RNA sequence: UUGAUUUCAUAACGUCACCACUCUAAAAUCUGGGGUGGGGUUGGAGGGGAUUUCUCCCCUCCGCCUGACUGUCUUAGUAAGCUGGCGAGCUAAUCACUAAGAGAACAAUCAGGAUGAUGAUUAACUUCAUCAUAACCCUUACCUCAUG
Number, nucleotide and partner (000 for none) at each position: 001u000002u000003g000004a000005u000006u000007u000008c000009a000010u000011a000012a000013c000014g000015u000016c000017a000018c000019c000020a000021c000022u000023c000024u000025a000026a000027a000028a000029u000030c000031u000032g143033g142034g000035g000036u000037g140038g138039g137040g136041u135042u000043g000044g061045a060046g059047g000048g000049g000050a000051u000052u000053u000054c000055u000056c000057c000058c000059c046060u045061c044062c000063g000064c000065c112066u111067g110068a109069c000070u000071g000072u000073c000074u000075u000076a000077g000078u000079a000080a000081g000082c000083u000084g000085g000086c000087g000088a000089g000090c000091u000092a000093a000094u000095c000096a000097c000098u000099a000100a000101g000102a000103g000104a000105a000106c000107a000108a000109u068110c067111a066112g065113g000114a133115u132116g131117a130118u129119g128120a000121u000122u000123a000124a000125c000126u000127u000128c119129a118130u117131c116132a115133u114134a000135a041136c040137c039138c038139u000140u037141a000142c033143c032144u000145c000146a000147u000148g000
Rfam assigns this 148-nucleotide RNA from Pantoea sp. M_5 to the family "Short Intergenic Abundant RNA". Rfam's curators write: This family contains multiple ncRNA from E. coli that were identified in a large scale screen of E. coli, were they were called candidates 43,55 and 61. These RNAs have also been identified by other groups and called QUAD RNAs. A reference for the family is Wassarman et al. (2001), "Identification of novel small RNAs using comparative genomics and microarrays", Genes Dev. Taxonomically the source falls in Pantoea (Bacteria, Pseudomonadati, Pseudomonadota, Erwiniaceae).